[Rfam]
RNA: Group I catalytic intron
RNA sequence: CCAUGCCUCUUUAAGUUAUUUAAACUUAAUAGAAAAUUGGGUGAAUUGCAAGGACAACUUUAUAAAAAUAAAGUCAAUUUGCAGCGAAGUUUAUAUCGGUAUAAUUAAAUAUGUUUAAUUUGAUAUAAAAACGUUCAACGACUAACAGGUGAGUAGUACUAAACAAUAAUCCUGUACUGUUUUUAUUUAAACAGUAGCGCCCAAUCAGUUUGUAAUAGGCAGCAUCGCCGUUAUUUCAAAUUGAAAGACAUAGUCUUAACUUAACUGUGAAGUUAAG
Numbered sequence: 001c002c003a004u005g006c007c008u009c010u011u012u013a014a015g016u017u018a019u020u021u022a023a024a025c026u027u028a029a030u031a032g033a034a035a036a037u038u039g040g041g042u043g044a045a046u047u048g049c050a051a052g053g054a055c056a057a058c059u060u061u062a063u064a065a066a067a068a069u070a071a072a073g074u075c076a077a078u079u080u081g082c083a084g085c086g087a088a089g090u091u092u093a094u095a096u097c098g099g100u101a102u103a104a105u106u107a108a109a110u111a112u113g114u115u116u117a118a119u120u121u122g123a124u125a126u127a128a129a130a131a132c133g134u135u136c137a138a139c140g141a142c143u144a145a146c147a148g149g150u151g152a153g154u155a156g157u158a159c160u161a162a163a164c165a166a167u168a169a170u171c172c173u174g175u176a177c178u179g180u181u182u183u184u185a186u187u188u189a190a191a192c193a194g195u196a197g198c199g200c201c202c203a204a205u206c207a208g209u210u211u212g213u214a215a216u217a218g219g220c221a222g223c224a225u226c227g228c229c230g231u232u233a234u235u236u237c238a239a240a241u242u243g244a245a246a247g248a249c250a251u252a253g254u255c256u257u258a259a260c261u262u263a264a265c266u267g268u269g270a271a272g273u274u275a276a277g
Stems, first nucleotide, its partner, number of pairs: 036205005042199002047083006057074005084134002090128002097122003138256001140255005207242006214235002262275005